[Rfam]
RNA sequence: CCACAGCUAGUUAAGCCCACUUGACUCAUCAUUUCUCUGAUGAGGGCUCAGUUGCAGUGACUGCAAAAAGCAGAUUCCCUUGUUGUGUAUACAACUCAUUUCCUUGUUUGUGUUGCUCUAUGGGACCUUGGAGACAUCA
Numbered sequence: 001c002c003a004c005a006g007c008u009a010g011u012u013a014a015g016c017c018c019a020c021u022u023g024a025c026u027c028a029u030c031a032u033u034u035c036u037c038u039g040a041u042g043a044g045g046g047c048u049c050a051g052u053u054g055c056a057g058u059g060a061c062u063g064c065a066a067a068a069a070g071c072a073g074a075u076u077c078c079c080u081u082g083u084u085g086u087g088u089a090u091a092c093a094a095c096u097c098a099u100u101u102c103c104u105u106g107u108u109u110g111u112g113u114u115g116c117u118c119u120a121u122g123g124g125a126c127c128u129u130g131g132a133g134a135c136a137u138c139a
Stems, first nucleotide, its partner, number of pairs: 004054002019052003025046003082126002092115004097110001
Description
A member of the RNA family "Small nucleolar RNA SNORA70" from Sciurus vulgaris, 139 nucleotides long. Rfam's curators write: snoRNA U70 seems to be exclusive to mammals and is a member of the H/ACA class of snoRNA which contain H (ANANNA) and ACA box motifs. Rfam classes the family as an H/ACA-box small nucleolar RNA. The family has 43 seed sequences and 5,173 matches in Rfam 15.1. The source organism's lineage runs through Eukaryota, Opisthokonta, Sciuridae, Sciurinae and Sciurus. The literature on the family includes a 2000 paper in IUBMB Life by Charette and Gray, "Pseudouridine in RNA: what, where, how, and why".